Shown here is a 75-nucleotide RNA sequence from Streptomyces sp. AJS327, a member of the family "ASpks TB sRNA". It scores 75 bits against the family's covariance model. It is annotated as an antisense RNA. Pairs were carried over by alignment from the consensus structure, which is taken from published work.
RNA sequence: CUUGAUCGAGCCGAGGCGCAGCGGGCUGUCCCCGGGCCGCUUCUGGCCGUAGGUGGCCAGCAGCGCCUGCGCCUC
Numbered sequence: 001c002u003u004g005a006u007c008g009a010g011c012c013g014a015g016g017c018g019c020a021g022c023g024g025g026c027u028g029u030c031c032c033c034g035g036g037c038c039g040c041u042u043c044u045g046g047c048c049g050u051a052g053g054u055g056g057c058c059a060g061c062a063g064c065g066c067c068u069g070c071g072c073c074u075c
Stems, first nucleotide, its partner, number of pairs: 017023001031071001033069001038065002043060003047056003